glmS glucosamine-6-phosphate activated ribozyme aptamer: a 155-nucleotide RNA from Paraclostridium benzoelyticum.
[Rfam]
RNA sequence: UUUACUUUACAAGCGCCAGAACUUAGUAAAAUCUAAGUUGACGAGGACAGAGUUAAUCGAAUUGUCGGCGGAUACUCUGCGGUGUGUUUACCAUCGUAAAGCUUUUACAAACCAUAUAAGUGAUUAUAUGUACAAAAAAAAGUUUAUGUAAACUG
Numbered sequence: 001u002u003u004a005c006u007u008u009a010c011a012a013g014c015g016c017c018a019g020a021a022c023u024u025a026g027u028a029a030a031a032u033c034u035a036a037g038u039u040g041a042c043g044a045g046g047a048c049a050g051a052g053u054u055a056a057u058c059g060a061a062u063u064g065u066c067g068g069c070g071g072a073u074a075c076u077c078u079g080c081g082g083u084g085u086g087u088u089u090a091c092c093a094u095c096g097u098a099a100a101g102c103u104u105u106u107a108c109a110a111a112c113c114a115u116a117u118a119a120g121u122g123a124u125u126a127u128a129u130g131u132a133c134a135a136a137a138a139a140a141a142g143u144u145u146a147u148g149u150a151a152a153c154u155g
Base pairs, nucleotide, nucleotide: 020039021038022037023036024035025034026033048079049078050077051076052075057068058067059066060065080096081095082094083093084092100144101143102142103141104140105139113130114129115128116127117126118125119124

Annotation:
Gene Ontology terms of the family: regulation of gene expression and catalytic activity. Lineage of the source: Bacteria > Bacillati > Bacillota > Peptostreptococcaceae > Paraclostridium. This entry contains a glucosamine-6-phosphate activated ribozyme that is found in the mRNA for GlmS. GlmS is an enzyme that uses fructose-6-phosphate and glutamine to generate glucosamine-6-phosphate. The ribozyme catalyses self cleavage of the glmS mRNA that is thought to regulate GlmS activity.